[Rfam]
RNA sequence: GCUAUCCUAUUCUCAGGGCUGUGUAUACUGUCCAGUGAGCAUGUAGUAAGGGCAGUGCUGACAAUGCCCACAUAAUAUGCCCAUAUCAACUACAGCUUUGCUUUGCCUUGGUGCAAUUUUUAGAAAA
Numbered sequence: 001g002c003u004a005u006c007c008u009a010u011u012c013u014c015a016g017g018g019c020u021g022u023g024u025a026u027a028c029u030g031u032c033c034a035g036u037g038a039g040c041a042u043g044u045a046g047u048a049a050g051g052g053c054a055g056u057g058c059u060g061a062c063a064a065u066g067c068c069c070a071c072a073u074a075a076u077a078u079g080c081c082c083a084u085a086u087c088a089a090c091u092a093c094a095g096c097u098u099u100g101c102u103u104u105g106c107c108u109u110g111g112u113g114c115a116a117u118u119u120u121u122a123g124a125a126a127a
Stems, first nucleotide, its partner, number of pairs: 006018003022061001027056007039047002084113005091105002094102003
RNA: U4atac minor spliceosomal RNA